[Rfam]
RNA sequence: UCCUCGCUCAAAGGAUCGCAUUCAAAGCUCACACACAGAAUAUCCACCCGAUAUUCUCCUUCCUCCUCCUCUGGUAGGGGAACCUAGCUUUGGGAGAAAGUCCCCGGACACCCUGCCCGAUCCUCCGGGAUCCGCGGCAGGCAAUGCGGAAACGCGCCGCCAUAGAAGCAAUUUGAUAGCGGCUGACUGCCCUACUCCCUCCCGGCGCCCGUGCCUAUAUCCGACGCCCUUGGCGGUGGAAACAAUGGUGGUAUAGCGGGGUGUCGGAGAGGGGUUGUUUCAUUGGGUUGCCUUUCGUCGUGUUUGGAUAGUCAUGCGAUUGCCUGUCCCUGCUUUGCAGGGAUCGGGUAACUCAAUGGGGCUCAUUCUUGAGGCGAGG
Numbered sequence: 001u002c003c004u005c006g007c008u009c010a011a012a013g014g015a016u017c018g019c020a021u022u023c024a025a026a027g028c029u030c031a032c033a034c035a036c037a038g039a040a041u042a043u044c045c046a047c048c049c050g051a052u053a054u055u056c057u058c059c060u061u062c063c064u065c066c067u068c069c070u071c072u073g074g075u076a077g078g079g080g081a082a083c084c085u086a087g088c089u090u091u092g093g094g095a096g097a098a099a100g101u102c103c104c105c106g107g108a109c110a111c112c113c114u115g116c117c118c119g120a121u122c123c124u125c126c127g128g129g130a131u132c133c134g135c136g137g138c139a140g141g142c143a144a145u146g147c148g149g150a151a152a153c154g155c156g157c158c159g160c161c162a163u164a165g166a167a168g169c170a171a172u173u174u175g176a177u178a179g180c181g182g183c184u185g186a187c188u189g190c191c192c193u194a195c196u197c198c199c200u201c202c203c204g205g206c207g208c209c210c211g212u213g214c215c216u217a218u219a220u221c222c223g224a225c226g227c228c229c230u231u232g233g234c235g236g237u238g239g240a241a242a243c244a245a246u247g248g249u250g251g252u253a254u255a256g257c258g259g260g261g262u263g264u265c266g267g268a269g270a271g272g273g274g275u276u277g278u279u280u281c282a283u284u285g286g287g288u289u290g291c292c293u294u295u296c297g298u299c300g301u302g303u304u305u306g307g308a309u310a311g312u313c314a315u316g317c318g319a320u321u322g323c324c325u326g327u328c329c330c331u332g333c334u335u336u337g338c339a340g341g342g343a344u345c346g347g348g349u350a351a352c353u354c355a356a357u358g359g360g361g362c363u364c365a366u367u368c369u370u371g372a373g374g375c376g377a378g379g
Stems, first nucleotide, its partner, number of pairs: 002379006008372004014321006022094001023092006038056007099363002102361004117134001119132004136292003140288001142286001144284001149281003158274001160272002257267001259265002323348004
The record is a 379-nucleotide RNA sequence from Aspergillus hiratsukae, which matches "RNase MRP" in Rfam. NCBI's taxonomy places the organism under Eukaryota, leotiomyceta, Aspergillaceae, Aspergillus, Aspergillus subgen. Fumigati. Rfam describes the family as follows. RNase MRP is an enzymatically active ribonucleoprotein with two distinct roles in eukaryotes. It is annotated as a ribozyme.